[Rfam]
RNA sequence: UACGUUCAGGCAUCAGCCCGGAAGUAGGAGUUAUCCGAAGGAACGCACC
Numbered sequence: 001u002a003c004g005u006u007c008a009g010g011c012a013u014c015a016g017c018c019c020g021g022a023a024g025u026a027g028g029a030g031u032u033a034u035c036c037g038a039a040g041g042a043a044c045g046c047a048c049c
Stems, first nucleotide, its partner, number of pairs: 003045005009018003021046001027036003

Rfam assigns this 49-nucleotide RNA to the family "Glutamine riboswitch aptamer (glnA leader)". On this family, see Ames and Breaker, RNA Biol 2011: "Bacterial aptamers that selectively bind glutamine". Rfam's curators put it in the seed alignment.